[Rfam]
RNA: Guanidine-I riboswitch aptamer
RNA sequence: AGAAAGUGUACCUAGGGUUCCACACCCGGUUUUCAGGGUGGUUCGGUCCGAGCGGUACAGGCCCGGAAUUGCAGUUUUCCGGGUUACACCGGCAGGGAGAAAAGCCCAGGCGGU
Numbered sequence: 001a002g003a004a005a006g007u008g009u010a011c012c013u014a015g016g017g018u019u020c021c022a023c024a025c026c027c028g029g030u031u032u033u034c035a036g037g038g039u040g041g042u043u044c045g046g047u048c049c050g051a052g053c054g055g056u057a058c059a060g061g062c063c064c065g066g067a068a069u070u071g072c073a074g075u076u077u078u079c080c081g082g083g084u085u086a087c088a089c090c091g092g093c094a095g096g097g098a099g100a101a102a103a104g105c106c107c108a109g110g111c112g113g114u
Stems, first nucleotide, its partner, number of pairs: 007059006015049002020046002022043001023040005060085008087109001089112001095107003